[Rfam]
RNA sequence: GGUUGGGCUAAUAGCUUCAAGGAUCAUAUUCUUCAAGGGGUGAGAAGAA
Numbered sequence: 001g002g003u004u005g006g007g008c009u010a011a012u013a014g015c016u017u018c019a020a021g022g023a024u025c026a027u028a029u030u031c032u033u034c035a036a037g038g039g040g041u042g043a044g045a046a047g048a049a
Base pairs, nucleotide, nucleotide: 003020004019005018006016007015008014029049030048031047032046033045034044